[Rfam]
RNA: c-di-AMP riboswitch aptamer (ydaO/yuaA leader)
Organism: Streptomyces clavuligerus
RNA sequence: GGACAGCCAUCGCCGAGUCCCCACCGGGUGCGAGCCCAGGGGAGCCGGGGACCCACCGUCCCCAGGGGUGAAUCGGGCGCCUUCGCACCGCGGAGGGGUCCGUAGGAGACCUUCCUGCUCCGAACCCGUCAGCUAACCCGGUAGGCGAGAAGGAAGGAAAG
Numbered sequence: 001g002g003a004c005a006g007c008c009a010u011c012g013c014c015g016a017g018u019c020c021c022c023a024c025c026g027g028g029u030g031c032g033a034g035c036c037c038a039g040g041g042g043a044g045c046c047g048g049g050g051a052c053c054c055a056c057c058g059u060c061c062c063c064a065g066g067g068g069u070g071a072a073u074c075g076g077g078c079g080c081c082u083u084c085g086c087a088c089c090g091c092g093g094a095g096g097g098g099u100c101c102g103u104a105g106g107a108g109a110c111c112u113u114c115c116u117g118c119u120c121c122g123a124a125c126c127c128g129u130c131a132g133c134u135a136a137c138c139c140g141g142u143a144g145g146c147g148a149g150a151a152g153g154a155a156g157g158a159a160a161g
Base pairs, nucleotide, nucleotide: 011147012146013145014144018043019042020041021040022039044142045141046140047139048138049137054065066127067126068125074102075101076100077099105121106120107119108118